[Rfam]
Shown here is a 91-nucleotide RNA sequence from Geotrypetes seraphini, a member of the family "mir-7 microRNA precursor family". The base pairs follow the family's consensus structure, which was predicted with PFOLD. Rfam describes the family as follows. This family represents the microRNA (miRNA) precursor mir-7. A reference for the family is Lagos-Quintana et al. (2001), "Identification of novel genes coding for small expressed RNAs", Science.
RNA sequence: UUUCUGGGACAGUCUGGAAGACUAGUGAUUUUGUUGUUUUUGAUAUUAUGGAAAGGAACAACAAGUCCCAGUCUCCAUACAGUUCCAGAAU
Numbered sequence: 001u002u003u004c005u006g007g008g009a010c011a012g013u014c015u016g017g018a019a020g021a022c023u024a025g026u027g028a029u030u031u032u033g034u035u036g037u038u039u040u041u042g043a044u045a046u047u048a049u050g051g052a053a054a055g056g057a058a059c060a061a062c063a064a065g066u067c068c069c070a071g072u073c074u075c076c077a078u079a080c081a082g083u084u085c086c087a088g089a090a091u
Base pairs, nucleotide, nucleotide: 002090003089004088005087006086007085008084010082012080013079015077016076017075019074020073021072022071023070025069027067028066029065030064031063033062034061035060036059037058038057
Dot-bracket structure: .(((((((.(.((.(((.(((((.(.(((((.((((((..................))))))))))).))))))))).)).).))))))).